[Rfam]
RNA sequence: UCUAGAACUUGAGAUAUGGGUUGAACAUUGAAAGUGUUUGAGCUGCAGGACAGAUUUGGACUUCUCCGUUGUUGCUACAAUAUGAACUUGAAAAUGACCUUUUGAAAUCUUGGACUCCCGUGAAAUUUUUAAGCCUAUAUCUUAGCUUUCCAUC
Dot-bracket structure: ..(.(((((.(((((((((((((((.(.(....(((...(((.(..((((...(...((..(........(((...........)))........).))...)....))))..)))).)))...).)))))).))))))))))))..))).)..